[Rfam]
RNA sequence: GGGUGCUAGCUGCAUGAAGCAGUGAUGCAGGUUAAACAGCUACGCAGGUCGGGCCGCCUUGCG
Numbered sequence: 001g002g003g004u005g006c007u008a009g010c011u012g013c014a015u016g017a018a019g020c021a022g023u024g025a026u027g028c029a030g031g032u033u034a035a036a037c038a039g040c041u042a043c044g045c046a047g048g049u050c051g052g053g054c055c056g057c058c059u060u061g062c063g
Stems, first nucleotide, its partner, number of pairs: 005028002007025001009023003043063004047058003
RNA: nhaA-I RNA